[Rfam]
The record is a 109-nucleotide RNA sequence from Papaver nudicaule, which matches "Small nucleolar RNA Z103" in Rfam. On this family, see Chen et al., Nucleic Acids Res 2003: "The high diversity of snoRNAs in plants: identification and comparative study of 120 snoRNA genes from Oryza sativa". Rfam 15.1 lists 2,844 matches to the family in 233 species. The base pairs follow the family's consensus structure, which was predicted with PFOLD. The organism belongs to Papaver, within Eukaryota. Rfam links the family to the GO terms nucleolus and RNA processing.
RNA sequence: AUGGAAGUGAUGAUCCUUUCCCCAUAUUAUCGACUAUGAUUAUAAUAUGCGUUUUGUUUUAAUCUCUUCCUCAACAGUUGAGAUUUUCCAAGCCAGUACUCUGACCCAU
Numbered sequence: 001a002u003g004g005a006a007g008u009g010a011u012g013a014u015c016c017u018u019u020c021c022c023c024a025u026a027u028u029a030u031c032g033a034c035u036a037u038g039a040u041u042a043u044a045a046u047a048u049g050c051g052u053u054u055u056g057u058u059u060u061a062a063u064c065u066c067u068u069c070c071u072c073a074a075c076a077g078u079u080g081a082g083a084u085u086u087u088c089c090a091a092g093c094c095a096g097u098a099c100u101c102u103g104a105c106c107c108a109u
Stems, first nucleotide, its partner, number of pairs: 001109004